[Rfam]
RNA sequence: AGACUCACAGUUCUGCCCAGUUACACUAGCUUCGCCUGUGUGGCUUUUGUAAUGGGGAGGAAGAGAAAGGAUCUCCCCAGGACCUCAGAUUAUCUUUACUGUGACAUCUCUUUCCUUGAGGGACACAACGGGU
Numbered sequence: 001a002g003a004c005u006c007a008c009a010g011u012u013c014u015g016c017c018c019a020g021u022u023a024c025a026c027u028a029g030c031u032u033c034g035c036c037u038g039u040g041u042g043g044c045u046u047u048u049g050u051a052a053u054g055g056g057g058a059g060g061a062a063g064a065g066a067a068a069g070g071a072u073c074u075c076c077c078c079a080g081g082a083c084c085u086c087a088g089a090u091u092a093u094c095u096u097u098a099c100u101g102u103g104a105c106a107u108c109u110c111u112u113u114c115c116u117u118g119a120g121g122g123a124c125a126c127a128a129c130g131g132g133u
Stems, first nucleotide, its partner, number of pairs: 004063002008059001011057005019045008074122003079117003087111003091106001093104002
This 133-nucleotide RNA from Rhinopithecus roxellana belongs to the Rfam family "Small nucleolar RNA SNORA64/SNORA10 family". Rfam links the family to the GO terms nucleolus and RNA processing. The family is grouped with related families in Rfam's "SNORA64 clan". NCBI's taxonomy places the organism under Eukaryota, Tetrapoda, Amniota, Boreoeutheria, Rhinopithecus. From the family's description: This family belongs to the H/ACA class of small nucleolar RNAs (snoRNAs) which act as guides in the the modification of uridines to pseudouridines. This family includes the human snoRNAs U64 and ACA10 and mouse MBI-29. A search with the family's covariance model found it, with a score of 79 bits. For this family Rfam cites "Nucleolar localization signals of box H/ACA small nucleolar RNAs" (Narayanan et al., EMBO J, 1999).